[Rfam]
RNA sequence: CGCUGCAGUCUGCUGAAUCCCGUCCGGGUGGACGGGAACGGGGGACCCGAUUCCAAGGGGCGUAUCACCGGGAAACCGGCGUAGGGCAAUCUCUUCGGCCCGAGCCCGACAGCUAACCUCGUAGGCAUCGAAGGGAAAGCGC
Numbered sequence: 001c002g003c004u005g006c007a008g009u010c011u012g013c014u015g016a017a018u019c020c021c022g023u024c025c026g027g028g029u030g031g032a033c034g035g036g037a038a039c040g041g042g043g044g045a046c047c048c049g050a051u052u053c054c055a056a057g058g059g060g061c062g063u064a065u066c067a068c069c070g071g072g073a074a075a076c077c078g079g080c081g082u083a084g085g086g087c088a089a090u091c092u093c094u095u096c097g098g099c100c101c102g103a104g105c106c107c108g109a110c111a112g113c114u115a116a117c118c119u120c121g122u123a124g125g126c127a128u129c130g131a132a133g134g135g136a137a138a139g140c141g142c
Stems, first nucleotide, its partner, number of pairs: 011127004018037007038122006048057001058107003066081001068079002084101004